[Rfam]
RNA sequence: CUGAAAGUCCGGGCCCCUCUGGCGAGAGACGCCGGUCCUCUCGCGAUGUCGGACGCGAUCC
Numbered sequence: 001c002u003g004a005a006a007g008u009c010c011g012g013g014c015c016c017c018u019c020u021g022g023c024g025a026g027a028g029a030c031g032c033c034g035g036u037c038c039u040c041u042c043g044c045g046a047u048g049u050c051g052g053a054c055g056c057g058a059u060c061c
Stems, first nucleotide, its partner, number of pairs: 007054006022044007